Guanidine-II riboswitch aptamer (mini-ykkC): a 49-nucleotide RNA from Caldimonas brevitalea. The source organism's lineage runs through Bacteria, Pseudomonadati, Pseudomonadota, Betaproteobacteria and Caldimonas. A reference for the family is Huang et al. (2017), "The Structure of the Guanidine-II Riboswitch", Cell Chem Biol.

RNA sequence: CCCGCGGGACGACCCGCGGCGCGUUUCGACCUCCGGCGGGACGGCCCGC
Numbered sequence: 001c002c003c004g005c006g007g008g009a010c011g012a013c014c015c016g017c018g019g020c021g022c023g024u025u026u027c028g029a030c031c032u033c034c035g036g037c038g039g040g041a042c043g044g045c046c047c048g049c
Stems, first nucleotide, its partner, number of pairs: 002019007036049005